[Rfam]
Rfam assigns this 70-nucleotide RNA sequence from Melopsittacus undulatus to the family "Small nucleolar RNA SNORD73".
RNA sequence: AAUGAGUGAUGACAAAAUGUUUCGGUCCCAAAUGACAUGGAAUGAUUCUAUCUUCCCAUUUUCUGACAUU
Dot-bracket structure: ((((..............................................................))))
Source information:
A search with the family's covariance model found it, with a score of 76 bits. It is annotated as a C/D-box small nucleolar RNA. A reference for the family is Rebane et al. (1998), "A novel snoRNA (U73) is encoded within the introns of the human and mouse ribosomal protein S3a genes", Gene. Rfam 15.1 lists 769 matches to the family in 586 species. The family's consensus secondary structure was predicted with PFOLD.